[Rfam]
RNA sequence: UCAAGCAAGGAUGUCAAACUUGCCCUCACUGAGAAUUCUGUUCGAUUAUGAGAACUUCACAGUGCUCAUAUGAUCUGAGCUUGA
Numbered sequence: 001u002c003a004a005g006c007a008a009g010g011a012u013g014u015c016a017a018a019c020u021u022g023c024c025c026u027c028a029c030u031g032a033g034a035a036u037u038c039u040g041u042u043c044g045a046u047u048a049u050g051a052g053a054a055c056u057u058c059a060c061a062g063u064g065c066u067c068a069u070a071u072g073a074u075c076u077g078a079g080c081u082u083g084a
Stems, first nucleotide, its partner, number of pairs: 001084006
The record is an 84-nucleotide RNA sequence from Eleutherodactylus coqui, which matches "Small nucleolar RNA SNORD103/SNORD85" in Rfam. By type it is a C/D-box small nucleolar RNA. Rfam links the family to the GO terms nucleolus and RNA processing. On this family, see Huttenhofer et al., EMBO J 2001: "RNomics: an experimental approach that identifies 201 candidates for novel, small, non-messenger RNAs in mouse".